[Rfam]
Nucleotides: 089
Stems, first nucleotide, its partner, number of pairs: 001089004
Number, partner (000 for none) and nucleotide at each position: 001089a002088a003087g004086c005000u006000g007000u008000g009000a010000u011000g012000a013000u014000a015000a016000a017000u018000g019000c020000g021000c022000u023000c024000a025000a026000g027000u028000g029000u030000a031000g032000g033000u034000u035000g036000g037000g038000u039000c040000c041000u042000u043000c044000a045000c046000a047000u048000u049000a050000u051000u052000c053000u054000g055000a056000u057000c058000c059000u060000a061000u062000c063000a064000g065000a066000a067000g068000a069000u070000a071000a072000u073000g074000u075000a076000g077000u078000g079000c080000u081000u082000c083000u084000g085000a086004g087003c088002u089001u